[Rfam]
RNA sequence: AAGUCUGCUCUAACUUUAGCAUCUUUCUUUUCAAUGAAGGUAGAAAGUGCUAUCAAGUUGGGGUAAAUGUU
Dot-bracket structure: ...(.((((((.(((..((((.((.(((.............))).))))))...).)).)))))).)....

This 71-nucleotide RNA from Sinocyclocheilus rhinocerous belongs to the Rfam family "miR-430 microRNA precursor family". Rfam links the family to the GO terms RISC complex and miRNA-mediated post-transcriptional gene silencing. The base pairs follow the family's consensus structure, which was predicted with RNAalifold. A search with the family's covariance model found it, with a score of 50 bits.